RNA sequence: GAGUGGUUAGUCUACGUGGACCGACAAGACUUCGGUCGAAUCGGAAGGAAACUUAACGUAGUUCUAACC
Numbered sequence: 001g002a003g004u005g006g007u008u009a010g011u012c013u014a015c016g017u018g019g020a021c022c023g024a025c026a027a028g029a030c031u032u033c034g035g036u037c038g039a040a041u042c043g044g045a046a047g048g049a050a051a052c053u054u055a056a057c058g059u060a061g062u063u064c065u066a067a068c069c
Stems, first nucleotide, its partner, number of pairs: 005069006012061006021044004028037003045054003
RNA: Dengue virus SLA
Organism: Orthoflavivirus denguei